Description: This 102-nucleotide RNA from Levilactobacillus brevis belongs to the Rfam family "23S methyl RNA motif". Rfam links the family to the GO term regulation of gene expression. The literature on the family includes a 2007 paper in Nucleic Acids Res by Weinberg et al., "Identification of 22 candidate structured RNAs in bacteria using the CMfinder comparative genomics pipeline". Lineage of the source: Bacteria > Bacilli > Lactobacillales > Lactobacillaceae > Levilactobacillus brevis.
RNA sequence: CGUUUGGCGGUCGAUAUCAGCGUUUAACUGUUAGCGGCAGACAAGUAGCACUUCACUAAAGUAGUUCCUCGCCGUGCCCACACCGAGGAGCUGCUUUUUUUG
Number, nucleotide and partner (000 for none) at each position: 001c000002g046003u045004u044005u043006g042007g000008c040009g000010g038011u037012c036013g035014a000015u033016a032017u000018c030019a029020g000021c000022g000023u000024u000025u000026a000027a000028c000029u019030g018031u000032u016033a015034g000035c013036g012037g011038c010039a000040g008041a000042c006043a005044a004045g003046u002047a000048g000049c000050a000051c000052u000053u000054c000055a000056c000057u000058a097059a096060a095061g094062u093063a092064g091065u090066u089067c088068c087069u086070c085071g084072c000073c000074g083075u082076g081077c000078c000079c000080a000081c076082a075083c074084c071085g070086a069087g068088g067089a066090g065091c064092u063093g062094c061095u060096u059097u058098u000099u000100u000101u000102g000